RNA: terC RNA
RNA sequence: AGCGCGGACCGGGCCCCUCUGGCGCCAGUCGUAACUGGCGUGAUGUCGGACCGCAUCG
Number, nucleotide and partner (000 for none) at each position: 001a000002g000003c000004g000005c000006g052007g051008a000009c049010c048011g047012g046013g000014c000015c000016c000017c000018u000019c000020u000021g000022g041023c040024g039025c038026c037027a036028g035029u034030c000031g000032u000033a000034a029035c028036u027037g026038g025039c024040g023041u022042g000043a000044u000045g000046u012047c011048g010049g009050a000051c007052c006053g000054c000055a000056u000057c000058g000